[Rfam]
RNA sequence: GAUUUGAAUGUGAGAAUUGGAGGAAAUCAAAGCAAUUGCAAUCAAACAUUGCCUUGGUUUCCUCCAAUAUCUCACCUUCAGUGC
Numbered sequence: 001g002a003u004u005u006g007a008a009u010g011u012g013a014g015a016a017u018u019g020g021a022g023g024a025a026a027u028c029a030a031a032g033c034a035a036u037u038g039c040a041a042u043c044a045a046a047c048a049u050u051g052c053c054u055u056g057g058u059u060u061c062c063u064c065c066a067a068u069a070u071c072u073c074a075c076c077u078u079c080a081g082u083g084c
Stems, first nucleotide, its partner, number of pairs: 004081005011074004016068006023061008032052002
A member of the RNA family "MIR2275 microRNA precursor family" from Musa acuminata, 84 nucleotides long.
It scores 70 bits against the family's covariance model.